[Rfam]
The record is a 210-nucleotide RNA sequence from Panicum miliaceum, which matches "MIR1435 microRNA precursor family" in Rfam. Taxonomically the source falls in Panicum sect. Panicum (Eukaryota, Euphyllophyta, Magnoliopsida, commelinids). The family has 3 seed sequences and 1,765 matches in Rfam 15.1.
RNA sequence: UAGUUUUAUCCAAAGUCAAACCUCUCUAACUUUGACCCAGUUUAUAGAAAAAGUCAAAAAACAUAUGAACAUCUACAAUAUCAGAUAAAUGCACUACCAAGACAUACUUUAUGGUGGAUUUAGUGAAACUGAUUUGAUGUUGUAGAUGUUGGUUUCUUUUUCUAUAAAUUUGGUUAAAGCUAGAGAAGUUUUGACUUAGGGCAAAACGAA
Dot-bracket structure: ....(((.(.(.(((((((((.((((....(((((.........((((((((.......(((.....((((((((((...((((((.............................................))))))...)))))))))).)))..)))))))).........)))))....)))).))).)))))).).).))).....